[Rfam]
RNA sequence: GAUAAAAGGGGUGGGAAUCCCCUUCGCCGUAAACCCAAGGUUUCCUACGCGAUGGUCGUCAUCGUAGGGUUAGGCGGGGCCUAAGGAUAAGCCGAGAGGCGAGGCCGACGGACAACUGGUUAAUAUUCCAGUCCUACUACGCAGUGCGAUGGGGGGACGCUUUAGGCUAGGCGAACCGGAGCCAUGGAAGAGCCCGGACAGAAGCCCAAAGGGGACUAUAGGCAAAUCCGUAGUCCAUUACCGGUGGGUGGUGUGGAAGCCGCAAGGUGACAACUCGCCGAAGCCAUGGAGCCGAGAAAAGCCUCUAAGCAUAACUGCGGAGUACCCGUACCGUAAACCGACACAGGUGGGUGGGUGUAAAUGCACCAAGGCGCG
Numbered sequence: 001g002a003u004a005a006a007a008g009g010g011g012u013g014g015g016a017a018u019c020c021c022c023u024u025c026g027c028c029g030u031a032a033a034c035c036c037a038a039g040g041u042u043u044c045c046u047a048c049g050c051g052a053u054g055g056u057c058g059u060c061a062u063c064g065u066a067g068g069g070u071u072a073g074g075c076g077g078g079g080c081c082u083a084a085g086g087a088u089a090a091g092c093c094g095a096g097a098g099g100c101g102a103g104g105c106c107g108a109c110g111g112a113c114a115a116c117u118g119g120u121u122a123a124u125a126u127u128c129c130a131g132u133c134c135u136a137c138u139a140c141g142c143a144g145u146g147c148g149a150u151g152g153g154g155g156g157a158c159g160c161u162u163u164a165g166g167c168u169a170g171g172c173g174a175a176c177c178g179g180a181g182c183c184a185u186g187g188a189a190g191a192g193c194c195c196g197g198a199c200a201g202a203a204g205c206c207c208a209a210a211g212g213g214g215a216c217u218a219u220a221g222g223c224a225a226a227u228c229c230g231u232a233g234u235c236c237a238u239u240a241c242c243g244g245u246g247g248g249u250g251g252u253g254u255g256g257a258a259g260c261c262g263c264a265a266g267g268u269g270a271c272a273a274c275u276c277g278c279c280g281a282a283g284c285c286a287u288g289g290a291g292c293c294g295a296g297a298a299a300a301g302c303c304u305c306u307a308a309g310c311a312u313a314a315c316u317g318c319g320g321a322g323u324a325c326c327c328g329u330a331c332c333g334u335a336a337a338c339c340g341a342c343a344c345a346g347g348u349g350g351g352u353g354g355g356u357g358u359a360a361a362u363g364c365a366c367c368a369a370g371g372c373g374c375g
Stems, first nucleotide, its partner, number of pairs: 006024006025373004033352004039332002044068006053061002075328004080111002085106002091100003115132005135324004140319006146310002151305004159292004165285003170279005176197004198254002204249004211242002213236007221229002256271001259268003338347002354367004

Record summary:
Shown here is a 375-nucleotide part of an RNA from Meiothermus ruber, a member of the family "Bacterial large subunit ribosomal RNA". The base pairs follow the family's consensus structure, which is taken from published work. Taxonomically the source falls in Meiothermus ruber (Bacteria, Thermotogati, Deinococci, Thermaceae). Rfam's curators put it in the seed alignment.